[Rfam]
RNA sequence: GGUGGUGCAAUGAUUAUACAACAUUCCUCGUACUGAUGGGAGAUCCAUGUGAACGACUCCAAUACACCCAUAGAAUCUGAGCACCA
Numbered sequence: 001g002g003u004g005g006u007g008c009a010a011u012g013a014u015u016a017u018a019c020a021a022c023a024u025u026c027c028u029c030g031u032a033c034u035g036a037u038g039g040g041a042g043a044u045c046c047a048u049g050u051g052a053a054c055g056a057c058u059c060c061a062a063u064a065c066a067c068c069c070a071u072a073g074a075a076u077c078u079g080a081g082c083a084c085c086a
Stems, first nucleotide, its partner, number of pairs: 003086002006083002
A member of the RNA family "Small nucleolar RNA snoR8a" from Aegilops tauschii, 86 nucleotides long. On this family, see Brown et al., RNA 2001: "Multiple snoRNA gene clusters from Arabidopsis". The family's consensus secondary structure was predicted with WAR. Its family is annotated with nucleolus and RNA processing in the Gene Ontology.